[Rfam]
RNA: c-di-GMP-I-GGC riboswitch aptamer
RNA sequence: ACUGAAAAAGGCAAACCCAUCGAAAGGUGGGGACGCAAAGUCUCCGGUCUACCGGGUGCAUUCGUGUGAAUUCCACCCCAGGAUAGCGGGACCGCCAGGU
Numbered sequence: 001a002c003u004g005a006a007a008a009a010g011g012c013a014a015a016c017c018c019a020u021c022g023a024a025a026g027g028u029g030g031g032g033a034c035g036c037a038a039a040g041u042c043u044c045c046g047g048u049c050u051a052c053c054g055g056g057u058g059c060a061u062u063c064g065u066g067u068g069a070a071u072u073c074c075a076c077c078c079c080a081g082g083a084u085a086g087c088g089g090g091a092c093c094g095c096c097a098g099g100u
Stems, first nucleotide, its partner, number of pairs: 001100001003097002011036002016031006034086001040092003044089003047084003